RNA sequence: CCUAUGGGGCCUGCGACCGCCCCGUGAGGCCAAGGCCCAAGGAUCGCAUCCUGAACCUCUUGAAAGGAUGCCUUGUCAUG
Number, nucleotide and partner (000 for none) at each position: 001c000002c000003u000004a000005u024006g023007g022008g021009g020010c019011c000012u000013g000014c000015g000016a000017c000018c000019g010020c009021c008022c007023c006024g005025u000026g000027a000028g000029g000030c000031c000032a000033a000034g000035g000036c000037c000038c000039a000040a000041g000042g000043a000044u000045c000046g071047c070048a069049u068050c067051c066052u000053g000054a000055a000056c000057c000058u000059c000060u000061u000062g000063a000064a000065a000066g051067g050068a049069u048070g047071c046072c000073u000074u000075g000076u000077c000078a000079u000080g000
A member of the RNA family "chrB-a RNA" from Sulfitobacter aestuariivivens, 80 nucleotides long. Pairs were carried over by alignment from the consensus structure, which is taken from published work. The source organism's lineage runs through Bacteria, Pseudomonadati, Pseudomonadota, Rhodobacterales and Sulfitobacter. The family's RNA type in Rfam is cis-regulatory element.